[Rfam]
RNA sequence: AUCUUCUCGUGAGCACCGCACUGUCCAGCAUUGACAGCAUAUGGAUUCGCAUGAGAAGUAGAGCAAACUCACAGUUAAACCGGCAGCUGCCAUAGUGGAAGUUGCCCAUGUCUGAUGUGAGACAAAU
Dot-bracket structure: ..((((((....((.((...(((((.......))))).....))....))..))))))..........(((((.............((.(((...))).))..............))))).......
This 127-nucleotide RNA sequence from Channa argus belongs to the Rfam family "Small nucleolar RNA SNORA75". For this family Rfam cites "The expanding snoRNA world" (Bachellerie et al., Biochimie, 2002). U23 belongs to the H/ACA class of snoRNAs. snoRNAs bind a number of proteins (including dyskerin, Gar1p and Nop10p in the case of the H/ACA class) to form snoRNP complexes. This class are thought to guide the sites of modification of uridines to pseudouridines by forming direct base pairing interactions with substrate RNAs. Targets include ribosomal and spliceosomal RNAs as well as the Trypanosoma spliced leader RNA (SL RNA) as possibly other, still unknown cellular RNAs. It scores 83 bits against the family's covariance model. Lineage of the source: Eukaryota > Neoteleostei > Acanthomorphata > Channidae > Channa. The family's RNA type in Rfam is H/ACA-box small nucleolar RNA.